chrB-a RNA: a 73-nucleotide sequence from Bradyrhizobium ivorense. The family's consensus secondary structure is taken from published work. It is annotated as a cis-regulatory element.
Nucleotides: 073
Stems, first nucleotide, its partner, number of pairs: 005023006046067006
Number, partner (000 for none) and nucleotide at each position: 001000c002000g003000a004000a005023c006022g007021g008020g009019g010018a011000a012000g013000c014000g015000g016000u017000c018010u019009c020008c021007c022006c023005g024000c025000g026000a027000g028000g029000c030000g031000a032000c033000a034000u035000g036000c037000c038000c039000a040000a041000g042000a043000a044000u045000c046067g047066c048065g049064u050063c051062c052000a053000u054000a055000c056000a057000u058000c059000g060000a061000a062051g063050g064049a065048c066047g067046c068000c069000g070000c071000a072000u073000g